[Rfam]
RNA sequence: AGAAAAGUGACCGCCGCCCCGCGCAGGGGCGACGCCGGCAGACCGUCAAGAAAGCCAGUUCAACGACGAAGCGUGGAUAACAGACAAUAAACCCACGCCCCCGCGAGCAACCU
Numbered sequence: 001a002g003a004a005a006a007g008u009g010a011c012c013g014c015c016g017c018c019c020c021g022c023g024c025a026g027g028g029g030c031g032a033c034g035c036c037g038g039c040a041g042a043c044c045g046u047c048a049a050g051a052a053a054g055c056c057a058g059u060u061c062a063a064c065g066a067c068g069a070a071g072c073g074u075g076g077a078u079a080a081c082a083g084a085c086a087a088u089a090a091a092c093c094c095a096c097g098c099c100c101c102c103g104c105g106a107g108c109a110a111c112c113u
Stems, first nucleotide, its partner, number of pairs: 011076004015031006058067003096105003
Dot-bracket structure: ..........((((((((((.....))))))..........................(((....))).....))))...................(((....)))........
Burkholderia sRNA Bp1_Cand684_SIPHT: a 113-nucleotide RNA sequence.
The match comes from Rfam's covariance-model search (124 bits).
Rfam 15.1 lists 176 matches to the family in 44 species.
The family's consensus secondary structure was predicted with RNAalifold.
A reference for the family is Khoo et al. (2012), "Computational discovery and RT-PCR validation of novel Burkholderia conserved and Burkholderia pseudomallei unique sRNAs", BMC Genomics.
The family's RNA type in Rfam is small RNA.